Rfam assigns this 112-nucleotide RNA sequence from Plutella xylostella to the family "mir-8517 microRNA precursor family". The source organism's lineage runs through Eukaryota, Pterygota, Neolepidoptera, Heteroneura and Plutella. Its family is annotated with RISC complex and miRNA-mediated post-transcriptional gene silencing in the Gene Ontology. A search with the family's covariance model found it, with a score of 84 bits.
[Rfam]
RNA sequence: UUACUGGACCCUUUAGCUAUUAAACUGUUUUUUCACUCUCUGACAGAGAACAAUUUGUACUUUGACAGAGAGUGACAAAACAGUUCAAUAGCUAAUUAAAGCGUCCAGUUUU
Numbered sequence: 001u002u003a004c005u006g007g008a009c010c011c012u013u014u015a016g017c018u019a020u021u022a023a024a025c026u027g028u029u030u031u032u033u034c035a036c037u038c039u040c041u042g043a044c045a046g047a048g049a050a051c052a053a054u055u056u057g058u059a060c061u062u063u064g065a066c067a068g069a070g071a072g073u074g075a076c077a078a079a080a081c082a083g084u085u086c087a088a089u090a091g092c093u094a095a096u097u098a099a100a101g102c103g104u105c106c107a108g109u110u111u112u
Stems, first nucleotide, its partner, number of pairs: 003109004011101003014094008023085006029069003033065003050058003